[Rfam]
RNA: Archaeal small subunit ribosomal RNA, nucleotides 863 to 1439
RNA sequence: UGGCGGGGGAGCACCACAACGCGUGGAGCCUGCGGUUUAAUUGGAUUCAACGCCGGACAUCUCACCAGAGGCGACAGCUGUAUGAUAGCCAGGUUGAUGACUUUGCUUGACUAGCUGAGAGGAGGUGCAUGGCCGCCGUCAGCUCGUACCGUGAGGCGUCCUGUUAAGUCAGGCAACGAGCGAGACCCACGCCCUUAGUUACCAGCGGAUCCUUUUGGAUGCCGGGCACACUAAGGGGACCGCCUAUGAUAAAUAGGAGGAAGGAGUGGACGACGGUAGGUCCGUAUGCCCCGAAUCCUCUGGGCAACACGCGGGCUACAAUGGCUGAGACAAUGGGUUCCGACGCCGAAAGGCGGAGGUAAUCCUCUAAACUUAGUCGUAGUUCGGAUUGAGGACUGUAACUCGUUCUCAUGAAGCUGGAAUGCGUAGUAAUCGCGUGUCACAAUCGCGCGGUGAAUACGUCCCUGCUCCUUGCACACACCGCCCGUCACGCCACCCAAAAAGGGAUUGGAUGAGGAUGUAAUGUUUGGUUAUAUUCGAAUCUAGUUUUUUUAAGGAGGGCGAAGUCGUAACAAGG
Numbered sequence: 001u002g003g004c005g006g007g008g009g010a011g012c013a014c015c016a017c018a019a020c021g022c023g024u025g026g027a028g029c030c031u032g033c034g035g036u037u038u039a040a041u042u043g044g045a046u047u048c049a050a051c052g053c054c055g056g057a058c059a060u061c062u063c064a065c066c067a068g069a070g071g072c073g074a075c076a077g078c079u080g081u082a083u084g085a086u087a088g089c090c091a092g093g094u095u096g097a098u099g100a101c102u103u104u105g106c107u108u109g110a111c112u113a114g115c116u117g118a119g120a121g122g123a124g125g126u127g128c129a130u131g132g133c134c135g136c137c138g139u140c141a142g143c144u145c146g147u148a149c150c151g152u153g154a155g156g157c158g159u160c161c162u163g164u165u166a167a168g169u170c171a172g173g174c175a176a177c178g179a180g181c182g183a184g185a186c187c188c189a190c191g192c193c194c195u196u197a198g199u200u201a202c203c204a205g206c207g208g209a210u211c212c213u214u215u216u217g218g219a220u221g222c223c224g225g226g227c228a229c230a231c232u233a234a235g236g237g238g239a240c241c242g243c244c245u246a247u248g249a250u251a252a253a254u255a256g257g258a259g260g261a262a263g264g265a266g267u268g269g270a271c272g273a274c275g276g277u278a279g280g281u282c283c284g285u286a287u288g289c290c291c292c293g294a295a296u297c298c299u300c301u302g303g304g305c306a307a308c309a310c311g312c313g314g315g316c317u318a319c320a321a322u323g324g325c326u327g328a329g330a331c332a333a334u335g336g337g338u339u340c341c342g343a344c345g346c347c348g349a350a351a352g353g354c355g356g357a358g359g360u361a362a363u364c365c366u367c368u369a370a371a372c373u374u375a376g377u378c379g380u381a382g383u384u385c386g387g388a389u390u391g392a393g394g395a396c397u398g399u400a401a402c403u404c405g406u407u408c409u410c411a412u413g414a415a416g417c418u419g420g421a422a423u424g425c426g427u428a429g430u431a432a433u434c435g436c437g438u439g440u441c442a443c444a445a446u447c448g449c450g451c452g453g454u455g456a457a458u459a460c461g462u463c464c465c466u467g468c469u470c471c472u473u474g475c476a477c478a479c480a481c482c483g484c485c486c487g488u489c490a491c492g493c494c495a496c497c498c499a500a501a502a503a504g505g506g507a508u509u510g511g512a513u514g515a516g517g518a519u520g521u522a523a524u525g526u527u528u529g530g531u532u533a534u535a536u537u538c539g540a541a542u543c544u545a546g547u548u549u550u551u552u553u554a555a556g557g558a559g560g561g562c563g564a565a566g567u568c569g570u571a572a573c574a575a576g577g
Base pairs, nucleotide, nucleotide: 001478002477003475004474005473007472008471009470010469011468012467013466016462017461020426021425022424023423024422025319027317028316029315030314031313032312033311034310035308036307041056042055043054044053065303066302067301068300069299070298071297075117076116077115078114080111087107088106089105091103092102093101121292122291124290125289126288127287130286131285132281133280134279135277136276137275138274142181143180144179145178146177147176149156150155160173161172162171163170187269188268189267190266192237193236194235195234196233197232198231202226203225206224207223208222209220210219211218212217240260241259243257244256245255246254247253323378324377325376326375327374328373329372335366336365337364340359341358344355345354346353347352385416390411391410392409393408394407395406396405432454433453434452435451436450437449438448439447481576483573486569487568489566491563492562493561494560497557498556501553502552503551504550505549506548507547508546509545510544511543512542513541516538517537518536519535520534521533522532523531524530